The family of this 84-nucleotide sequence from Cellulosilyticum lentocellum is "ZMP/ZTP riboswitch aptamer (pfl RNA motif)". The organism belongs to Cellulosilyticum lentocellum, within Bacteria. The base pairs follow the family's consensus structure, which is taken from published work.

RNA sequence: UAGGUUCUGUACGACUGGCGGAUAAGUGGGAGCACCCACAGGGAGUACAGAAAUUUAGAAAUGCCGACCGCCUGGGCGACCUUU
Numbered sequence: 001u002a003g004g005u006u007c008u009g010u011a012c013g014a015c016u017g018g019c020g021g022a023u024a025a026g027u028g029g030g031a032g033c034a035c036c037c038a039c040a041g042g043g044a045g046u047a048c049a050g051a052a053a054u055u056u057a058g059a060a061a062u063g064c065c066g067a068c069c070g071c072c073u074g075g076g077c078g079a080c081c082u083u084u
Stems, first nucleotide, its partner, number of pairs: 003054001005052008015042002017072005027038004062078004